Rfam assigns this 83-nucleotide RNA to the family "S10-Clostridia ribosomal protein leader".
By type it is a cis-regulatory leader.
It is one of the family's seed sequences.
[Rfam]
RNA sequence: UGAUAGCGUAGAUCUGUGAGGUUGCUGUCGUGUGUGACAGGUUUUCACAGGGAGUAAAUGUCAAGUUAGGAAACUGGCGACAA
Numbered sequence: 001u002g003a004u005a006g007c008g009u010a011g012a013u014c015u016g017u018g019a020g021g022u023u024g025c026u027g028u029c030g031u032g033u034g035u036g037a038c039a040g041g042u043u044u045u046c047a048c049a050g051g052g053a054g055u056a057a058a059u060g061u062c063a064a065g066u067u068a069g070g071a072a073a074c075u076g077g078c079g080a081c082a083a
Base pairs, nucleotide, nucleotide: 014050015049016048018046019045020044021043025040026039027038028037029036059082060081061080062079065078066077067076068075